[Rfam]
RNA: R2 RNA element
RNA sequence: UAAUAGAAACACCAAUAGACAUAAAGAAUACAUCAUCCUUAUCGGCUAAAGAGGACCCUAGUUGGUCCUAAAACGGCCUGAGGUAGAGGGAUUUUAGUCGGUAGGUCCGAGGACUUCUUCCUCGGGAAUCCGACACUACCCAGUCGUACGAACGGCUGGGUGUCUUCUGAAGAUUUCCCCUCUUCCACGAAA
Number, nucleotide and partner (000 for none) at each position: 001u000002a000003a000004u000005a000006g000007a000008a000009a000010c000011a000012c000013c000014a000015a000016u000017a000018g000019a000020c000021a000022u000023a000024a000025a000026g000027a000028a000029u000030a000031c000032a000033u000034c000035a000036u055037c054038c053039u052040u051041a000042u000043c000044g000045g000046c000047u000048a000049a000050a000051g040052a039053g038054g037055a036056c000057c000058c000059u000060a000061g000062u191063u190064g000065g188066u187067c000068c000069u000070a000071a000072a000073a000074c000075g000076g000077c000078c000079u000080g000081a000082g186083g185084u000085a183086g182087a000088g179089g178090g177091a000092u000093u000094u000095u000096a000097g134098u133099c132100g131101g130102u000103a000104g000105g000106u126107c125108c124109g123110a122111g121112g120113a119114c000115u000116u000117c000118u000119u113120c112121c111122u110123c109124g108125g107126g106127a000128a000129u000130c101131c100132g099133a098134c097135a000136c162137u000138a161139c160140c159141c158142a157143g000144u000145c000146g000147u000148a000149c000150g000151a000152a000153c000154g000155g000156c000157u142158g141159g140160g139161u138162g136163u000164c000165u000166u000167c000168u000169g000170a000171a000172g000173a000174u000175u000176u000177c090178c089179c088180c000181u000182c086183u085184u000185c083186c082187a066188c065189g000190a063191a062192a000